[Rfam]
RNA sequence: GGGAGAAGGCCUCUCGAAGUCGGCUUGCAGGAGCAGGCUUCAAACCGCCCGGUGCUGCUGCGUUUAAAAGACGUGGUGGUGUUGUGCCAAGAACGUGUAGCUAUUGCGAACACGAUGC
Numbered sequence: 001g002g003g004a005g006a007a008g009g010c011c012u013c014u015c016g017a018a019g020u021c022g023g024c025u026u027g028c029a030g031g032a033g034c035a036g037g038c039u040u041c042a043a044a045c046c047g048c049c050c051g052g053u054g055c056u057g058c059u060g061c062g063u064u065u066a067a068a069a070g071a072c073g074u075g076g077u078g079g080u081g082u083u084g085u086g087c088c089a090a091g092a093a094c095g096u097g098u099a100g101c102u103a104u105u106g107c108g109a110a111c112a113c114g115a116u117g118c
Stems, first nucleotide, its partner, number of pairs: 001015005016041006023034004046117001051088003054080002057077003061073004094114005

Shown here is a 118-nucleotide RNA from Caballeronia sp. SBC1, a member of the family "Group II catalytic intron D1-D4-2". A reference for the family is Bonen and Vogel (2001), "The ins and outs of group II introns", Trends Genet. Group II introns are found in rRNA, tRNA and mRNA of organelles in fungi, plants and protists, and also in mRNA in bacteria.